[Rfam]
RNA sequence: CACCCGGCCCGGAUCCCGUGGGGGGAAUCCUCGGCCGGGGCAAGGGAAAGCGCCCCGUCCGUCGAC
Dot-bracket structure: (.(((((...(((((((.....))).))))....)))))....(((......)))........)..

The record is a 66-nucleotide sequence from Streptomyces globosus, which matches "Streptomyces RNA 2736" in Rfam. Rfam describes the family as follows. Identified by deep sequencing of transcriptome at the end of exponential growth phase. Appears smaller on northern blot than sequencing transcript. The base pairs follow the family's consensus structure.